[Rfam]
RNA sequence: AGCCACAGGGAACUACUGCUGCUGAUAUAUGUACGAUUCGCAUUUCUAUAUCACAGUGGCUGUUCUUUUUGGUU
Numbered sequence: 001a002g003c004c005a006c007a008g009g010g011a012a013c014u015a016c017u018g019c020u021g022c023u024g025a026u027a028u029a030u031g032u033a034c035g036a037u038u039c040g041c042a043u044u045u046c047u048a049u050a051u052c053a054c055a056g057u058g059g060c061u062g063u064u065c066u067u068u069u070u071g072g073u074u
Stems, first nucleotide, its partner, number of pairs: 004071002007068007016059006023053002026050004
RNA: mir-6 microRNA precursor family
Organism: Scaptodrosophila lebanonensis